Annotation: The family of this 68-nucleotide RNA sequence from Alteribacillus persepolensis is "Bacillaceae-1 RNA". Lineage of the source: Bacteria > Bacillati > Bacilli > Bacillaceae > Alteribacillus.
RNA sequence: CCCUCCGGAAAGCCGGCUAAGACCAGCCACAUCGUGUGGCCAACGCCGACACCAGCACGUCCUGUGCA
Numbered sequence: 001c002c003c004u005c006c007g008g009a010a011a012g013c014c015g016g017c018u019a020a021g022a023c024c025a026g027c028c029a030c031a032u033c034g035u036g037u038g039g040c041c042a043a044c045g046c047c048g049a050c051a052c053c054a055g056c057a058c059g060u061c062c063u064g065u066g067c068a
Base pairs, nucleotide, nucleotide: 012050014048015047016046017045026040027039028038029037030036055067056066057065058064
Rfam classes the family as a small RNA.